Rfam assigns this 68-nucleotide RNA from Bombyx mori to the family "mir-2774 microRNA precursor family".

[Rfam]
RNA sequence: ACAACAUUCAGACCGUCAGUCUACCAAGCAAUAUCACCCGCUCAGUGUAAGAUCUUUCCCUCCGUUGU
Numbered sequence: 001a002c003a004a005c006a007u008u009c010a011g012a013c014c015g016u017c018a019g020u021c022u023a024c025c026a027a028g029c030a031a032u033a034u035c036a037c038c039c040g041c042u043c044a045g046u047g048u049a050a051g052a053u054c055u056u057u058c059c060c061u062c063c064g065u066u067g068u
Stems, first nucleotide, its partner, number of pairs: 004065002011058002015053003020049001022047003027042003

It scores 56 bits against the family's covariance model. Taxonomically the source falls in Bombyx (Eukaryota, Panarthropoda, Allotriocarida, Insecta).